[Rfam]
RNA sequence: GGGCGGCCCACGCCGAAUCCGUGCUGCCACAGGGCAGUUCGGAACCGGGGACCCACACGCACCACCUGGGGUGAAUCGGUACGUACUUCCCACGGACCGUAGGGCAGCCUUCCGUUCCGCCCGAACCCGACAGCUAACCCGGUAGGCGGUCCACGGAAGGAGAU
Numbered sequence: 001g002g003g004c005g006g007c008c009c010a011c012g013c014c015g016a017a018u019c020c021g022u023g024c025u026g027c028c029a030c031a032g033g034g035c036a037g038u039u040c041g042g043a044a045c046c047g048g049g050g051a052c053c054c055a056c057a058c059g060c061a062c063c064a065c066c067u068g069g070g071g072u073g074a075a076u077c078g079g080u081a082c083g084u085a086c087u088u089c090c091c092a093c094g095g096a097c098c099g100u101a102g103g104g105c106a107g108c109c110u111u112c113c114g115u116u117c118c119g120c121c122c123g124a125a126c127c128c129g130a131c132a133g134c135u136a137a138c139c140c141g142g143u144a145g146g147c148g149g150u151c152c153a154c155g156g157a158a159g160g161a162g163a164u
Stems, first nucleotide, its partner, number of pairs: 011148004018043003044143006054068002069128003077099004102122004
Shown here is a 164-nucleotide RNA sequence from Streptomyces sp. ISL-98, a member of the family "c-di-AMP riboswitch aptamer (ydaO/yuaA leader)". Lineage of the source: Bacteria > Actinomycetota > Kitasatosporales > Streptomycetaceae > Streptomyces. Rfam describes the family as follows. This family represents a conserved RNA structure found upstream of the ydaO and yuaA genes in Bacillus subtilis and related genes in other bacteria.